Overview
Shown here is a 167-nucleotide sequence from Neobacillus massiliamazoniensis, a member of the family "M-box riboswitch aptamer (ykoK leader)". It scores 157 bits against the family's covariance model. The organism belongs to Neobacillus, within Bacteria. Its family is annotated with regulation of gene expression and response to magnesium ion in the Gene Ontology. From the family's description: M-box riboswitch, also know as ykoK leader is described as a metaloregulatory RNA that sense divalent metals and function as a genetic control element of genes related to divalent metal transport in bacteria. It was first reported upstream of the B.subtilis ykoK gene and genes with related functions in other bacteria.
RNA sequence: AUAGGUCCUCGUUAGGUGAGGCUCCUAUACAAACAAAGGCCACUGCCCGGAAAUAUCGAAAGAUGCCAAUGGGUAGAACAGGAAUUGUCGGAUUAAGGCUUUUCUUAAGGUGGCUAAGGGAUUUCCUUUACGUUGUAUAGUGCCAAAGCUCAACUCGGGGGAAUGGU
Numbered sequence: 001a002u003a004g005g006u007c008c009u010c011g012u013u014a015g016g017u018g019a020g021g022c023u024c025c026u027a028u029a030c031a032a033a034c035a036a037a038g039g040c041c042a043c044u045g046c047c048c049g050g051a052a053a054u055a056u057c058g059a060a061a062g063a064u065g066c067c068a069a070u071g072g073g074u075a076g077a078a079c080a081g082g083a084a085u086u087g088u089c090g091g092a093u094u095a096a097g098g099c100u101u102u103u104c105u106u107a108a109g110g111u112g113g114c115u116a117a118g119g120g121a122u123u124u125c126c127u128u129u130a131c132g133u134u135g136u137a138u139a140g141u142g143c144c145a146a147a148g149c150u151c152a153a154c155u156c157g158g159g160g161g162a163a164u165g166g167u
Base pairs, nucleotide, nucleotide: 005164006163008161009160010159011154012153013096015150016149017148020144021143022142025140026139027138028137029136030135031134032133039114040113041112042111043110045074046073047072048071049070054065055064056063057062081105082104083103084102087099088098089097116128117127118126